A member of the RNA family "pemK RNA", 81 nucleotides long. It is one of the family's seed sequences.
RNA sequence: AUAAUGAUACUUCCGCCCAGCCACAGACUCAAGCAAUGGGGGCGGCUCUAUGAGAACCAUAGUGGAGUGAAAGGCUCAUGA
Numbered sequence: 001a002u003a004a005u006g007a008u009a010c011u012u013c014c015g016c017c018c019a020g021c022c023a024c025a026g027a028c029u030c031a032a033g034c035a036a037u038g039g040g041g042g043c044g045g046c047u048c049u050a051u052g053a054g055a056a057c058c059a060u061a062g063u064g065g066a067g068u069g070a071a072a073g074g075c076u077c078a079u080g081a
Base pairs, nucleotide, nucleotide: 012078013045014044015043016042017041018040046064048062050060051059052058065077066076067075
It is annotated as a cis-regulatory element.